[Rfam]
RNA sequence: GUUGAUGAGAACUUGAGUGGAUCGCUCGAUUUCUUUGUGCAUAGAUCGAGCGAUCCACUCAAGUCCUCAUCAAC
Numbered sequence: 001g002u003u004g005a006u007g008a009g010a011a012c013u014u015g016a017g018u019g020g021a022u023c024g025c026u027c028g029a030u031u032u033c034u035u036u037g038u039g040c041a042u043a044g045a046u047c048g049a050g051c052g053a054u055c056c057a058c059u060c061a062a063g064u065c066c067u068c069a070u071c072a073a074c
Stems, first nucleotide, its partner, number of pairs: 001074009011064002016059015033044002036041001